[Rfam]
RNA sequence: UCUGGCUUUGGGAUUAUCUCGUUUGAUCCGGUUGCCCACGGCCAGCAUCAGGUGGGUUUUACCAAGACCGGUACCACCGUA
Numbered sequence: 001u002c003u004g005g006c007u008u009u010g011g012g013a014u015u016a017u018c019u020c021g022u023u024u025g026a027u028c029c030g031g032u033u034g035c036c037c038a039c040g041g042c043c044a045g046c047a048u049c050a051g052g053u054g055g056g057u058u059u060u061a062c063c064a065a066g067a068c069c070g071g072u073a074c075c076a077c078c079g080u081a
Stems, first nucleotide, its partner, number of pairs: 004043004009038004016032003021028001051078004056074002061072003
RNA: antisense RNA of dnaA mRNA